[Rfam]
RNA sequence: GCGAGCGUAGCCAAGUGGUUAAGGCAGAGGUUUGUGGUACCUCCAUUCGUGGGUUCGAUCCCCAUCGUUCGCC
Numbered sequence: 001g002c003g004a005g006c007g008u009a010g011c012c013a014a015g016u017g018g019u020u021a022a023g024g025c026a027g028a029g030g031u032u033u034g035u036g037g038u039a040c041c042u043c044c045a046u047u048c049g050u051g052g053g054u055u056c057g058a059u060c061c062c063c064a065u066c067g068u069u070c071g072c073c
Base pairs, nucleotide, nucleotide: 001072002071003070004069005068006067007066010025011024012023027043028042029041030040031039049065050064051063052062053061
The family of this 73-nucleotide RNA sequence from Leptolyngbya sp. NIES-3755 is "tRNA". The family is grouped with related families in Rfam's "tRNA clan". The match comes from Rfam's covariance-model search (57 bits).